[Rfam]
RNA: mir-19 microRNA precursor family
Organism: Menidia menidia
Nucleotides: 080
Base pairs, nucleotide, nucleotide: 004077005076006075007074008073011070012069013068014067015066016065017064018063020060021059022057023056024055025054026053028051031050032049033048
Number, partner (000 for none) and nucleotide at each position: 001000c002000u003000u004077u005076a006075c007074a008073g009000u010000a011070a012069g013068u014067u015066u016065u017064g018063u019000u020060g021059g022057u023056u024055u025054g026053c027000u028051c029000u030000c031050a032049g033048c034000u035000u036000c037000u038000g039000c040000c041000a042000g043000u044000g045000u046000c047000u048033g049032c050031u051028g052000u053026g054025c055024a056023a057022a058000u059021c060020c061000a062000u063018g064017c065016a066015a067014a068013g069012c070011u071000c072000u073008c074007u075006g076005u077004a078000c079000c080000c